drz-agam-1 ribozyme: a 79-nucleotide RNA sequence from Hermetia illucens.
Taxonomically the source falls in Hermetia (Eukaryota, Metazoa, Protostomia, Allotriocarida).

[Rfam]
RNA sequence: UACUACCAUACCCUAUCUCCAUCUCCACGUGAUGACCGCUGGGAGCUGUUUCUCAACGAACAGCUGCAGACGGGGAAGG
Numbered sequence: 001u002a003c004u005a006c007c008a009u010a011c012c013c014u015a016u017c018u019c020c021a022u023c024u025c026c027a028c029g030u031g032a033u034g035a036c037c038g039c040u041g042g043g044a045g046c047u048g049u050u051u052c053u054c055a056a057c058g059a060a061c062a063g064c065u066g067c068a069g070a071c072g073g074g075g076a077a078g079g
Stems, first nucleotide, its partner, number of pairs: 012079003016075004021033003044065007052058001

Gene Ontology term of the family: catalytic activity. Rfam 15.1 lists 10,507 matches to the family in 53 species. A search with the family's covariance model found it, with a score of 39 bits.